Rfam assigns this 323-nucleotide RNA from Trichogramma brassicae to the family "Nuclear RNase P".
The family is grouped with related families in Rfam's "RNaseP clan".
Ribonuclease P (RNase P) is a ubiquitous endoribonuclease, found in archaea, bacteria and eukarya as well as chloroplasts and mitochondria. Its best characterised activity is the generation of mature 5'-ends of tRNAs by cleaving the 5'-leader elements of precursor-tRNAs.
The family's RNA type in Rfam is ribozyme.
The source organism's lineage runs through Eukaryota, Pancrustacea, Hexapoda, Chalcidoidea and Trichogramma.
RNA sequence: GCAGUGUCAAUCUCGCAGCAGGGGUGUACACACAGGUACUUAGUUACCUCAAACCUCACCUCGGGAAGGUCUGAGAUAAGGUCAUAAUAUAUGCUCUAGACGGGCAAUGUCUUCAAAGGCAUGCGCUGGAACCAGAAAUUCCUCGGGGGUGUCGAAUAAAAUAUUUUUAUCGCCUGGGAUGCUCAUUUAAUGUGCGGAGGUGUGAUGCCGCCCGAGAUGGAAGCUGGCGUGACCCGCAUUUUUAGUUCAAUCUGCGAGCCUCUUCGGUAGUUGUAGUUUUCUGGCUACCGAUUGGAACUCAAUUCAGACUAGUCUGACACUGU
Numbered sequence: 001g002c003a004g005u006g007u008c009a010a011u012c013u014c015g016c017a018g019c020a021g022g023g024g025u026g027u028a029c030a031c032a033c034a035g036g037u038a039c040u041u042a043g044u045u046a047c048c049u050c051a052a053a054c055c056u057c058a059c060c061u062c063g064g065g066a067a068g069g070u071c072u073g074a075g076a077u078a079a080g081g082u083c084a085u086a087a088u089a090u091a092u093g094c095u096c097u098a099g100a101c102g103g104g105c106a107a108u109g110u111c112u113u114c115a116a117a118g119g120c121a122u123g124c125g126c127u128g129g130a131a132c133c134a135g136a137a138a139u140u141c142c143u144c145g146g147g148g149g150u151g152u153c154g155a156a157u158a159a160a161a162u163a164u165u166u167u168u169a170u171c172g173c174c175u176g177g178g179a180u181g182c183u184c185a186u187u188u189a190a191u192g193u194g195c196g197g198a199g200g201u202g203u204g205a206u207g208c209c210g211c212c213c214g215a216g217a218u219g220g221a222a223g224c225u226g227g228c229g230u231g232a233c234c235c236g237c238a239u240u241u242u243u244a245g246u247u248c249a250a251u252c253u254g255c256g257a258g259c260c261u262c263u264u265c266g267g268u269a270g271u272u273g274u275a276g277u278u279u280u281c282u283g284g285c286u287a288c289c290g291a292u293u294g295g296a297a298c299u300c301a302a303u304u305c306a307g308a309c310u311a312g313u314c315u316g317a318c319a320c321u322g323u
Stems, first nucleotide, its partner, number of pairs: 001323004007317003012258007021062005034049005039043001071307005080234004092106005107122006123230007142216006259295002263291002